[Rfam]
RNA: Small nucleolar RNA snoR53Y
RNA sequence: GUUCCUGGUGAUGUAUGAUAAACCAUGCUAAUACUGAAUAUCUUGUGAUUGAUAUCGAUUUUUUGAAAUUAUCUGAAGGAACA
Numbered sequence: 001g002u003u004c005c006u007g008g009u010g011a012u013g014u015a016u017g018a019u020a021a022a023c024c025a026u027g028c029u030a031a032u033a034c035u036g037a038a039u040a041u042c043u044u045g046u047g048a049u050u051g052a053u054a055u056c057g058a059u060u061u062u063u064u065g066a067a068a069u070u071a072u073c074u075g076a077a078g079g080a081a082c083a
Base pairs, nucleotide, nucleotide: 001082002081003080004079005078